[Rfam]
RNA sequence: UGACCGGACCGCGACUGGCGCACUCGAGGUGGAAGCAACCACCGGGAAGCACCGAUGUCCGGCACCGCGCGCCUGGGUGCCUGGC
Numbered sequence: 001u002g003a004c005c006g007g008a009c010c011g012c013g014a015c016u017g018g019c020g021c022a023c024u025c026g027a028g029g030u031g032g033a034a035g036c037a038a039c040c041a042c043c044g045g046g047a048a049g050c051a052c053c054g055a056u057g058u059c060c061g062g063c064a065c066c067g068c069g070c071g072c073c074u075g076g077g078u079g080c081c082u083g084g085c
Stems, first nucleotide, its partner, number of pairs: 003056001005054003011050002015046002017073005029042004062080005
ZMP/ZTP riboswitch aptamer (pfl RNA motif): an 85-nucleotide sequence from Nocardia aurantiaca. Lineage of the source: Bacteria > Actinomycetes > Mycobacteriales > Nocardiaceae > Nocardia. The family's consensus secondary structure is taken from published work.